[Rfam]
Nucleotides: 354
Stems, first nucleotide, its partner, number of pairs: 040053005057189005067182002069177004081166002085163003091107005108148007190205004196215002199213003320335004326351006
Number, partner (000 for none) and nucleotide at each position: 001000c002000u003000a004000c005000u006000u007000g008000a009000g010000u011000u012000c013000g014000c015000c016000a017000a018000a019000g020000u021000c022000a023000g024000a025000a026000c027000c028000u029000a030000u031000a032000u033000u034000c035000a036000a037000a038000g039000u040053g041052u042051c043050u044049c045000u046000u047000c048000g049044g050043g051042g052041a053040c054000u055000a056000u057189g058188g059187a060186c061185a062000u063000a064000a065000a066000c067182g068181c069177g070176c071175u072174c073000g074000u075000a076000a077000u078000a079000a080000g081166c082165g083000g084000a085163u086162c087161g088000g089000a090000c091107c092106c093105g094104g095103g096000g097000g098000c099000g100000g101000u102000a103095c104094c105093c106092g107091g108148c109147g110146a111145c112144u113143c114142c115000a116000c117000c118000a119000a120000a121000c122000a123000u124000c125000c126000u127000u128000c129000a130000u131000u132000u133000g134000g135000g136000g137000a138000u139000c140000a141000u142114g143113g144112g145111g146110u147109c148108g149000a150000a151000a152000u153000a154000g155000g156000a157000u158000c159000g160000a161087c162086g163085a164000a165082c166081g167000u168000c169000u170000a171000a172000a173000g174072g175071g176070g177069u178000u179000a180000u181068g182067c183000u184000u185061u186060g187059u188058c189057u190205c191204g192203g193202u194000g195000a196215g197214a198000u199213a200212c201211c202193a203192c204191c205190g206000u207000u208000a209000u210000c211201g212200g213199u214197u215196c216000a217000a218000a219000c220000u221000g222000u223000a224000c225000a226000a227000u228000u229000g230000c231000a232000a233000a234000u235000g236000a237000c238000a239000a240000u241000c242000g243000u244000g245000c246000u247000c248000c249000g250000g251000c252000a253000a254000u255000g256000g257000c258000u259000c260000u261000g262000g263000c264000u265000g266000c267000g268000u269000a270000a271000g272000c273000a274000g275000u276000u277000c278000g279000g280000g281000u282000c283000g284000c285000c286000g287000a288000a289000a290000u291000u292000a293000a294000g295000u296000c297000c298000u299000g300000a301000c302000g303000c304000u305000u306000a307000g308000c309000a310000g311000c312000c313000u314000c315000a316000g317000g318000c319000g320335g321334g322333g323332u324000u325000c326351g327350g328349a329348g330347g331346u332323a333322c334321c335320u336000g337000g338000c339000a340000a341000c342000a343000g344000a345000a346331a347330c348329c349328u350327c351326c352000a353000c354000u